[Rfam]
RNA: c-di-GMP-I riboswitch aptamer
RNA sequence: AUGUGACAAAGGCAAACCCGUUGAAAAACGGGGACGUAAAGCUAAAGGGGCUAAUACUACUUUUUAGUUAUGCCAGCCAGUUGCCGAU
Numbered sequence: 001a002u003g004u005g006a007c008a009a010a011g012g013c014a015a016a017c018c019c020g021u022u023g024a025a026a027a028a029c030g031g032g033g034a035c036g037u038a039a040a041g042c043u044a045a046a047g048g049g050g051c052u053a054a055u056a057c058u059a060c061u062u063u064u065u066a067g068u069u070a071u072g073c074c075a076g077c078c079a080g081u082u083g084c085c086g087a088u
Stems, first nucleotide, its partner, number of pairs: 012037002017032006040082004047078002049074003056068004